[Rfam]
RNA: Makes More Granules Regulator RNA (mmgR)
Organism: Sphingobium herbicidovorans
RNA sequence: AGGGAGUGCCUUUCAGGCAUCCUCUCCUAAAACUUUCAGGCCGGCCCCUAUGGGUCGGCCAUUUUUUUGCGCCCU
Numbered sequence: 001a002g003g004g005a006g007u008g009c010c011u012u013u014c015a016g017g018c019a020u021c022c023u024c025u026c027c028u029a030a031a032a033c034u035u036u037c038a039g040g041c042c043g044g045c046c047c048c049u050a051u052g053g054g055u056c057g058g059c060c061a062u063u064u065u066u067u068u069g070c071g072c073c074c075u
Stems, first nucleotide, its partner, number of pairs: 008018004039060009